Record summary:
This 132-nucleotide RNA sequence from Asanoa hainanensis belongs to the Rfam family "c-di-AMP riboswitch aptamer (ydaO/yuaA leader)". A search with the family's covariance model found it, with a score of 77 bits. Rfam's curators write: This family represents a conserved RNA structure found upstream of the ydaO and yuaA genes in Bacillus subtilis and related genes in other bacteria. The ydaO/yuaA element is thought to act as a genetic 'off' switch for the ydaO and yuaA genes in its native state. It is believed that the element may be triggered during osmotic shock leading to activation of ydaO, a predicted amino acid transporter gene, and members of the yuaA-yubG operon which code for KtrA and KtrB K+ transporters. The base pairs follow the family's consensus structure.

RNA sequence: GCGCCGCUGCUGCCUAAUCGCCGAGAGGCGAGCCGGGGACCCGUGUUCCAUGGGGUGAGUCCGCGAAAGCGGUAGGGGUUGUUCCGUCCCGAACCCGUCAGCUAACCCGGUAGGCGGCCCUACCGAAGGAAC
Numbered sequence: 001g002c003g004c005c006g007c008u009g010c011u012g013c014c015u016a017a018u019c020g021c022c023g024a025g026a027g028g029c030g031a032g033c034c035g036g037g038g039a040c041c042c043g044u045g046u047u048c049c050a051u052g053g054g055g056u057g058a059g060u061c062c063g064c065g066a067a068a069g070c071g072g073u074a075g076g077g078g079u080u081g082u083u084c085c086g087u088c089c090c091g092a093a094c095c096c097g098u099c100a101g102c103u104a105a106c107c108c109g110g111u112a113g114g115c116g117g118c119c120c121u122a123c124c125g126a127a128g129g130a131a132c
Stems, first nucleotide, its partner, number of pairs: 011116004018031003032111006042052002053096003061072004075090004